The family of this 109-nucleotide RNA sequence from Triticum urartu is "Small nucleolar RNA Z188".
The literature on the family includes a 2003 paper in Nucleic Acids Res by Chen et al., "The high diversity of snoRNAs in plants: identification and comparative study of 120 snoRNA genes from Oryza sativa".
It scores 73 bits against the family's covariance model.
[Rfam]
RNA sequence: GCGUGCCGAUGAUGAUGCAAAAGCAUCGGUGAAUUCUGGAUGAAUGCGCUUGCGCACCACAAGGUGUGCGGCUUUGGUGAUAUCCACUGCGCUAUACUCUGAGGCACGC
Numbered sequence: 001g002c003g004u005g006c007c008g009a010u011g012a013u014g015a016u017g018c019a020a021a022a023g024c025a026u027c028g029g030u031g032a033a034u035u036c037u038g039g040a041u042g043a044a045u046g047c048g049c050u051u052g053c054g055c056a057c058c059a060c061a062a063g064g065u066g067u068g069c070g071g072c073u074u075u076g077g078u079g080a081u082a083u084c085c086a087c088u089g090c091g092c093u094a095u096a097c098u099c100u101g102a103g104g105c106a107c108g109c
Stems, first nucleotide, its partner, number of pairs: 002108006
Lineage of the source: Eukaryota > Liliopsida > Petrosaviidae > Poales > Triticum.